[Rfam]
About this RNA
Rfam assigns this 84-nucleotide sequence from Pontibacillus marinus to the family "c-di-GMP-I riboswitch aptamer". Taxonomically the source falls in Pontibacillus marinus (Bacteria, Bacillota, Caryophanales, Bacillaceae).
RNA sequence: UACUGACAAAGGCAAACUUAUUGAUAAGAUAAGGACGCAAAGCCACGGGCCUAAGGAGCAAUCUAUGGUAGCCGGGUUACCGAA
Numbered sequence: 001u002a003c004u005g006a007c008a009a010a011g012g013c014a015a016a017c018u019u020a021u022u023g024a025u026a027a028g029a030u031a032a033g034g035a036c037g038c039a040a041a042g043c044c045a046c047g048g049g050c051c052u053a054a055g056g057a058g059c060a061a062u063c064u065a066u067g068g069u070a071g072c073c074g075g076g077u078u079a080c081c082g083a084a
Base pairs, nucleotide, nucleotide: 012038013037017033018032019031020030021029022028041078042077043076044075046074047073048072049069050068051067056063057062